[Rfam]
RNA: TPP riboswitch aptamer (THI element)
RNA sequence: CAGAAGUCUAUGGGGUGCUAUUAUAGCUGAGAUCAGACCCAUGAACCUGCUCUGGACAAUACCAGCGAAGGGAUAGACAAAUUAAAUAAU
Numbered sequence: 001c002a003g004a005a006g007u008c009u010a011u012g013g014g015g016u017g018c019u020a021u022u023a024u025a026g027c028u029g030a031g032a033u034c035a036g037a038c039c040c041a042u043g044a045a046c047c048u049g050c051u052c053u054g055g056a057c058a059a060u061a062c063c064a065g066c067g068a069a070g071g072g073a074u075a076g077a078c079a080a081a082u083u084a085a086a087u088a089a090u
Base pairs, nucleotide, nucleotide: 006078007077008076009075010074011041012040013039014038016035017027018026019025020024046071047070048069052065053064054063055062